[Rfam]
RNA sequence: CCGUGCUAGAUGGGGAGCUGGCGGUGCCCUGUAACCCGCAAUCCGCCUUAGCGGGGUUGAAUUCCACUCUAGCGGUACGUAUUAUGUAAGGCUUGCCUUGUGUAAGUAGUGUUGACGUUUGGAGUCUGCGCAACAGAAAGCUAUGAAACUGGUCAGAUCCGGAAGGAAGCAGCCAUAAGUAGUUGAUUCUGUGUGCCGCAGGUUGCUCUAAACUGAGCUGGCUGCACAAGUAACACUUGGAUAAGCGUAUCAAAGAGUGGUGCACGG
Dot-bracket structure: ((((((..(((((((.(((...))).))))....(((((...........)))))))).....(((((((...(((((...((((.((((...((..((((((..(((((......((((((((((((((((.(((((((((((.....((((....(((....)))....))))...))))))..)))))))...))))))...))))))))...))).)).)))))).))...)))).))))..)))))..))))))).))))))